[Rfam]
RNA sequence: CUUUUUGCGGUCUGGGCUUGCUGUUAACACACCUCAACCCAGGAAGCCCUUACCCCAAAAAGCAU
Numbered sequence: 001c002u003u004u005u006u007g008c009g010g011u012c013u014g015g016g017c018u019u020g021c022u023g024u025u026a027a028c029a030c031a032c033c034u035c036a037a038c039c040c041a042g043g044a045a046g047c048c049c050u051u052a053c054c055c056c057a058a059a060a061a062g063c064a065u
Base pairs, nucleotide, nucleotide: 001062002061003060004059005058006057007056009054010053011052014049015048016047017046019044021042022041
RNA: mir-129 microRNA precursor family
Organism: Salmo salar